[Rfam]
RNA sequence: GCACCUCACAGCAACCCUGUCGAUUCUGUCUGUUUGAUACGGGUCAAAUUGGUGCCAUAGAGAUUCAAUGUAAAUCCAGAUGGACCUCCUCUCGUGGAGCCUGUCUCUACAACUUUGAUACACAA
Numbered sequence: 001g002c003a004c005c006u007c008a009c010a011g012c013a014a015c016c017c018u019g020u021c022g023a024u025u026c027u028g029u030c031u032g033u034u035u036g037a038u039a040c041g042g043g044u045c046a047a048a049u050u051g052g053u054g055c056c057a058u059a060g061a062g063a064u065u066c067a068a069u070g071u072a073a074a075u076c077c078a079g080a081u082g083g084a085c086c087u088c089c090u091c092u093c094g095u096g097g098a099g100c101c102u103g104u105c106u107c108u109a110c111a112a113c114u115u116u117g118a119u120a121c122a123c124a125a
Base pairs, nucleotide, nucleotide: 001055002054003053004052005051013044015042016041018039019038021036022035065118066117067116068115070113078106079105080104081103082102083101085099092097
The record is a 125-nucleotide RNA sequence from Acanthochromis polyacanthus, which matches "Small nucleolar RNA SNORA55" in Rfam. Pairs were carried over by alignment from the consensus structure, which was predicted with PFOLD. Taxonomically the source falls in Acanthochromis (Eukaryota, Deuterostomia, Actinopteri, Osteoglossocephalai). Rfam's curators write: ACA55 is a member of the H/ACA class of snoRNA that guide the sites of modification of uridines to pseudouridines. The family has 29 seed sequences and 1,476 matches in Rfam 15.1. Rfam links the family to the GO terms RNA processing and nucleolus.